[Rfam]
Annotation: The family of this 343-nucleotide RNA from Anopheles darlingi is "Nuclear RNase P". The base pairs follow the family's consensus structure, which is taken from published work. Its family is annotated with ribonuclease P activity, ribonuclease P complex and tRNA processing in the Gene Ontology. Rfam 15.1 lists 3,848 matches to the family in 1,862 species.
RNA sequence: GCUAGUGGUAAUCUCGCACUUGGAGCACCCGUACGAGUACCUGGUUACUCUGGAUUUGUUUGCUUCGGGAAGGUCUGAGAAAAGGCAUGCGAAUAUGCCUCAGCAAGGCAGCUCUGUGAUAGGAGCGUUCGCUACCAGCAAUACAUCGAUUGUCGGAUGAUGCAGCGGCGACCCGUUAUGUUGAAAGCGCUUUUUUAACUGUGAAAACAGUUAAUUAGAGCACCCCUCAGCAUUGCGGAGGCGUCACUGAUUGAAAACAGCGGAUUGCCAGCCAUUUGAGUCAAAUUUGCGAGCUACCAGUUCAUCCCUGGUAGAACUCAAUUCAGACUAAUCUAUCACUAGC
Numbered sequence: 001g002c003u004a005g006u007g008g009u010a011a012u013c014u015c016g017c018a019c020u021u022g023g024a025g026c027a028c029c030c031g032u033a034c035g036a037g038u039a040c041c042u043g044g045u046u047a048c049u050c051u052g053g054a055u056u057u058g059u060u061u062g063c064u065u066c067g068g069g070a071a072g073g074u075c076u077g078a079g080a081a082a083a084g085g086c087a088u089g090c091g092a093a094u095a096u097g098c099c100u101c102a103g104c105a106a107g108g109c110a111g112c113u114c115u116g117u118g119a120u121a122g123g124a125g126c127g128u129u130c131g132c133u134a135c136c137a138g139c140a141a142u143a144c145a146u147c148g149a150u151u152g153u154c155g156g157a158u159g160a161u162g163c164a165g166c167g168g169c170g171a172c173c174c175g176u177u178a179u180g181u182u183g184a185a186a187g188c189g190c191u192u193u194u195u196u197a198a199c200u201g202u203g204a205a206a207a208c209a210g211u212u213a214a215u216u217a218g219a220g221c222a223c224c225c226c227u228c229a230g231c232a233u234u235g236c237g238g239a240g241g242c243g244u245c246a247c248u249g250a251u252u253g254a255a256a257a258c259a260g261c262g263g264a265u266u267g268c269c270a271g272c273c274a275u276u277u278g279a280g281u282c283a284a285a286u287u288u289g290c291g292a293g294c295u296a297c298c299a300g301u302u303c304a305u306c307c308c309u310g311g312u313a314g315a316a317c318u319c320a321a322u323u324c325a326g327a328c329u330a331a332u333c334u335a336u337c338a339c340u341a342g343c
Base pairs, nucleotide, nucleotide: 001343002342003341004340008336009335010334013293014292015291016290017289018288022066023065024064025063026062035050036049037048038047039046040044075326076325077324078323079322084269085268086267087266096110097109098108099107100106111126112125113124114123115122127265128264129263130262131261132260133259146250147249148248294314295313296312297311298310299309300308